[Rfam]
RNA sequence: CCUCCCGCUUUUCCUCCCUGAGCGGGCGCCUUGAUGUGUGAAAGCAAAAAGGCUUCCUGCCCUCGGCCUCUGGUCGGGGGUUUUUUUU
Numbered sequence: 001c002c003u004c005c006c007g008c009u010u011u012u013c014c015u016c017c018c019u020g021a022g023c024g025g026g027c028g029c030c031u032u033g034a035u036g037u038g039u040g041a042a043a044g045c046a047a048a049a050a051g052g053c054u055u056c057c058u059g060c061c062c063u064c065g066g067c068c069u070c071u072g073g074u075c076g077g078g079g080g081u082u083u084u085u086u087u088u
Base pairs, nucleotide, nucleotide: 004026005025006024007023008022009021028053029052030051031050035049060080061079062078063077064076065075066074067073
A member of the RNA family "Burkholderia RNA 7 (anti-hemB)" from Limnohabitans sp. 63ED37-2, 88 nucleotides long.
From the family's description: This RNA motif was identified by computational search in b-proteobacteria Burkholderia. Co-purified with Hfq, expression confirmed by Northern blot.
The organism belongs to Limnohabitans, within Bacteria.
The match comes from Rfam's covariance-model search (59 bits).
The literature on the family includes a 2007 paper in Nucleic Acids Res by Weinberg et al., "Identification of 22 candidate structured RNAs in bacteria using the CMfinder comparative genomics pipeline".